[Rfam]
RNA sequence: UCCCAGGCUGUGACCCUCUAAAGGGAAGCGCUUUCUGUUGUCUGGAAAGAAAGAGACGCCUUCCCUUUAGAGUGUUACAGUUUGAGA
Numbered sequence: 001u002c003c004c005a006g007g008c009u010g011u012g013a014c015c016c017u018c019u020a021a022a023g024g025g026a027a028g029c030g031c032u033u034u035c036u037g038u039u040g041u042c043u044g045g046a047a048a049g050a051a052a053g054a055g056a057c058g059c060c061u062u063c064c065c066u067u068u069a070g071a072g073u074g075u076u077a078c079a080g081u082u083u084g085a086g087a
Stems, first nucleotide, its partner, number of pairs: 001087002004084002007081008016072003020068009032056004038052002
RNA: mir-515 microRNA precursor family